[Rfam]
RNA sequence: GCAAAAAUAGCUCAAUGGUAGAGUAUGCCUUGCCAAGGUUAAUGUUGAGGGUUCGAGUCCCUUUUUUUGCU
Numbered sequence: 001g002c003a004a005a006a007a008u009a010g011c012u013c014a015a016u017g018g019u020a021g022a023g024u025a026u027g028c029c030u031u032g033c034c035a036a037g038g039u040u041a042a043u044g045u046u047g048a049g050g051g052u053u054c055g056a057g058u059c060c061c062u063u064u065u066u067u068u069g070c071u
Stems, first nucleotide, its partner, number of pairs: 001070007010024004026041002028038002047063005

This 71-nucleotide sequence from Globisporangium ultimum belongs to the Rfam family "tRNA".
Taxonomically the source falls in Globisporangium ultimum (Eukaryota, Sar, Oomycota, Globisporangium).
The match comes from Rfam's covariance-model search (53 bits).